[Rfam]
RNA sequence: GGAGCUCGAGGUCCUGACUGGGGGCAGAAAGAGAACCCAAGGAAAGCUGACUUGGAGGCCCUUCCUUUCUAUCCUGCAGGACUUUGGCCUGG
Numbered sequence: 001g002g003a004g005c006u007c008g009a010g011g012u013c014c015u016g017a018c019u020g021g022g023g024g025c026a027g028a029a030a031g032a033g034a035a036c037c038c039a040a041g042g043a044a045a046g047c048u049g050a051c052u053u054g055g056a057g058g059c060c061c062u063u064c065c066u067u068u069c070u071a072u073c074c075u076g077c078a079g080g081a082c083u084u085u086g087g088c089c090u091g092g
Stems, first nucleotide, its partner, number of pairs: 003090002006087011019076005026070005031064003036057001037055005
RNA: mir-4667 microRNA precursor family